[Rfam]
RNA sequence: CUCUGGAAAGCAGUGCUCCGCGUGAGGCGGACUGCUCACCGAAGGAGUAACCUCUGGGCAGGUCCUUGGGCUUGUCAGCGGGAAAUCUCUCAGGUUCUGGGACAGAG
Numbered sequence: 001c002u003c004u005g006g007a008a009a010g011c012a013g014u015g016c017u018c019c020g021c022g023u024g025a026g027g028c029g030g031a032c033u034g035c036u037c038a039c040c041g042a043a044g045g046a047g048u049a050a051c052c053u054c055u056g057g058g059c060a061g062g063u064c065c066u067u068g069g070g071c072u073u074g075u076c077a078g079c080g081g082g083a084a085a086u087c088u089c090u091c092a093g094g095u096u097c098u099g100g101g102a103c104a105g106a107g
Stems, first nucleotide, its partner, number of pairs: 001107005012036004038095003041091002045089003051082002
RNA: Glycine riboswitch aptamer